RNA sequence: CUGUGCCCGACACUCUUUCCCUGUUGCACUACUGUGGGAGCUGUAGCUAGCAGUGCAAUAAUGAAAGGGCAUCGGUCAGCUG
Numbered sequence: 001c002u003g004u005g006c007c008c009g010a011c012a013c014u015c016u017u018u019c020c021c022u023g024u025u026g027c028a029c030u031a032c033u034g035u036g037g038g039a040g041c042u043g044u045a046g047c048u049a050g051c052a053g054u055g056c057a058a059u060a061a062u063g064a065a066a067g068g069g070c071a072u073c074g075g076u077c078a079g080c081u082g
Stems, first nucleotide, its partner, number of pairs: 001082001003080001005077001007075004013069007022060009
Shown here is an 82-nucleotide RNA sequence from Oncorhynchus kisutch, a member of the family "mir-130 microRNA precursor family". Lineage of the source: Eukaryota > Teleostomi > Osteoglossocephalai > Salmoniformes > Oncorhynchus. A search with the family's covariance model found it, with a score of 55 bits. On this family, see Lagos-Quintana et al., Curr Biol 2002: "Identification of tissue-specific microRNAs from mouse".